Shown here is a 52-nucleotide RNA from Methylocystis bryophila, a member of the family "ffh sRNA". The match comes from Rfam's covariance-model search (43 bits). The base pairs follow the family's consensus structure, which is taken from published work.
[Rfam]
RNA sequence: GAAGCGGCGGACCCACGUCCGGCGGCGCGUUGCGCUCCCGGGCGCUUUUGCG
Numbered sequence: 001g002a003a004g005c006g007g008c009g010g011a012c013c014c015a016c017g018u019c020c021g022g023c024g025g026c027g028c029g030u031u032g033c034g035c036u037c038c039c040g041g042g043c044g045c046u047u048u049u050g051c052g
Stems, first nucleotide, its partner, number of pairs: 016044007025035004